[Rfam]
RNA sequence: ACUAUAAUUUGCCAAACUUAUUGUGAAAUAAGGACGGAAAGCUUUGAGUCUUAAUUAGUAAAUUAAGAUUGUCGGGUUGCGAUU
Dot-bracket structure: ...........((...((((((....))))))...))..((((.((((((....((((....)))))))..)))))))......
c-di-GMP-I riboswitch aptamer: an 84-nucleotide sequence from Sulfurimonas autotrophica. About the family: GEMM was predicted in a large-scale screen for bacterial structured RNA regulatory elements. The organism belongs to Sulfurimonas autotrophica, within Bacteria. It scores 57 bits against the family's covariance model.